[Rfam]
RNA: Alphacoronavirus 3'UTR
RNA sequence: CAUUGCUUUUCUCUGAUCUAUGUAUGAUGGUACGAUCAGAGCUGCUUUUAAUUAACAUGAUCCCUUGCUUUGGCUUGACAAGGAUCUAGUCUUAUACACAAUGGUAAGCCAGUGGUAGUAAAGGUAUAAGAAAUUUGCUACUAUGUUACUGAACCUAGGUGAACGCUAGUAUAACUCAUUACAAAUGUGCUGGAGUAAUCAAAGAUCGCAUUGACGAGCCAACAAUGGAAGAGCCAGUCAUUUGUCUUGAGACCUAUCUAGUUAGUAACUGCUAAUGGAACGGUUUCGAUAUGGAUACAC
Numbered sequence: 001c002a003u004u005g006c007u008u009u010u011c012u013c014u015g016a017u018c019u020a021u022g023u024a025u026g027a028u029g030g031u032a033c034g035a036u037c038a039g040a041g042c043u044g045c046u047u048u049u050a051a052u053u054a055a056c057a058u059g060a061u062c063c064c065u066u067g068c069u070u071u072g073g074c075u076u077g078a079c080a081a082g083g084a085u086c087u088a089g090u091c092u093u094a095u096a097c098a099c100a101a102u103g104g105u106a107a108g109c110c111a112g113u114g115g116u117a118g119u120a121a122a123g124g125u126a127u128a129a130g131a132a133a134u135u136u137g138c139u140a141c142u143a144u145g146u147u148a149c150u151g152a153a154c155c156u157a158g159g160u161g162a163a164c165g166c167u168a169g170u171a172u173a174a175c176u177c178a179u180u181a182c183a184a185a186u187g188u189g190c191u192g193g194a195g196u197a198a199u200c201a202a203a204g205a206u207c208g209c210a211u212u213g214a215c216g217a218g219c220c221a222a223c224a225a226u227g228g229a230a231g232a233g234c235c236a237g238u239c240a241u242u243u244g245u246c247u248u249g250a251g252a253c254c255u256a257u258c259u260a261g262u263u264a265g266u267a268a269c270u271g272c273u274a275a276u277g278g279a280a281c282g283g284u285u286u287c288g289a290u291a292u293g294g295a296u297a298c299a300c
Stems, first nucleotide, its partner, number of pairs: 091108005112144011148284004158270003165262005175251004182244005189238005209218001219228002